A member of the RNA family "mir-2 microRNA precursor family" from Drosophila virilis, 73 nucleotides long.
[Rfam]
Nucleotides: 073
Base pairs, nucleotide, nucleotide: 006066007065008064009063010062011061012060013059014058015057017055018054019053020052021051022050027049028048029047
Number, partner (000 for none) and nucleotide at each position: 001000u002000g003000g004000c005000g006066c007065g008064u009063c010062a011061a012060a013059a014058u015057g016000a017055c018054u019053g020052u021051g022050a023000g024000c025000u026000a027049u028048g029047u030000u031000g032000u033000u034000g035000c036000a037000u038000u039000u040000g041000c042000c043000a044000u045000u046000c047029a048028u049027a050022u051021c052020a053019c054018a055017g056000c057015c058014a059013u060012u061011u062010u063009g064008a065007c066006g067000a068000g069000u070000u071000u072000g073000a
Pairs were carried over by alignment from the consensus structure, which was predicted with PFOLD.
Its family is annotated with RISC complex and miRNA-mediated post-transcriptional gene silencing in the Gene Ontology.
For this family Rfam cites "An extensive class of small RNAs in Caenorhabditis elegans" (Lee and Ambros, Science, 2001).
Taxonomically the source falls in Drosophila (Eukaryota, Pancrustacea, Panorpida, Drosophilini).